[Rfam]
RNA sequence: AAGACCUUACUUCAUAGGAUCAUUUCUAUAGUAAGUUCUUCACGAGACCUUCACAACAUGUGAGAUUGUACCAACCACGUUGAUGAUACGUGGCGCGGCGCCCUGAGCGUGAGGCGGGCGGCAGCAGCUCGCUGCCAGCCCUCGAUGAUCGUUCGCUCUCCGUGCAAGCGGAGGGGGUGGGGCGUUGUCGCUGUCUGAGUGGU
Numbered sequence: 001a002a003g004a005c006c007u008u009a010c011u012u013c014a015u016a017g018g019a020u021c022a023u024u025u026c027u028a029u030a031g032u033a034a035g036u037u038c039u040u041c042a043c044g045a046g047a048c049c050u051u052c053a054c055a056a057c058a059u060g061u062g063a064g065a066u067u068g069u070a071c072c073a074a075c076c077a078c079g080u081u082g083a084u085g086a087u088a089c090g091u092g093g094c095g096c097g098g099c100g101c102c103c104u105g106a107g108c109g110u111g112a113g114g115c116g117g118g119c120g121g122c123a124g125c126a127g128c129u130c131g132c133u134g135c136c137a138g139c140c141c142u143c144g145a146u147g148a149u150c151g152u153u154c155g156c157u158c159u160c161c162g163u164g165c166a167a168g169c170g171g172a173g174g175g176g177g178u179g180g181g182g183c184g185u186u187g188u189c190g191c192u193g194u195c196u197g198a199g200u201g202g203u
Stems, first nucleotide, its partner, number of pairs: 001040004006035006015028005048064001050062001074203005093191003096187009107152003117140003121135005156175008

Description: This 203-nucleotide RNA sequence from Papilio xuthus belongs to the Rfam family "Small nucleolar RNA U3". About the family: Small nucleolar RNAs (snoRNAs) are involved in the processing and modification of rRNA in the nucleolus. The family's consensus secondary structure is taken from published work. The source organism's lineage runs through Eukaryota, Panarthropoda, Amphiesmenoptera, Heteroneura and Papilio. The family is grouped with related families in Rfam's "U3 clan". A search with the family's covariance model found it, with a score of 126 bits.